[Rfam]
RNA sequence: GUUAAUGAUUGACAACGAAAGAAAGCACGCAAGUAUACAUUCAUGUCCCCCUGCAUAAGUGCAGACCAGCGUGCUCUCUCUCGUUGUCAACCAAAA
Numbered sequence: 001g002u003u004a005a006u007g008a009u010u011g012a013c014a015a016c017g018a019a020a021g022a023a024a025g026c027a028c029g030c031a032a033g034u035a036u037a038c039a040u041u042c043a044u045g046u047c048c049c050c051c052u053g054c055a056u057a058a059g060u061g062c063a064g065a066c067c068a069g070c071g072u073g074c075u076c077u078c079u080c081u082c083g084u085u086g087u088c089a090a091c092c093a094a095a096a
Stems, first nucleotide, its partner, number of pairs: 010089005016083002020079002025074006033066002
Description
Rfam assigns this 96-nucleotide RNA from Musa troglodytarum to the family "MIR535 microRNA precursor family". The organism belongs to Musa, within Eukaryota.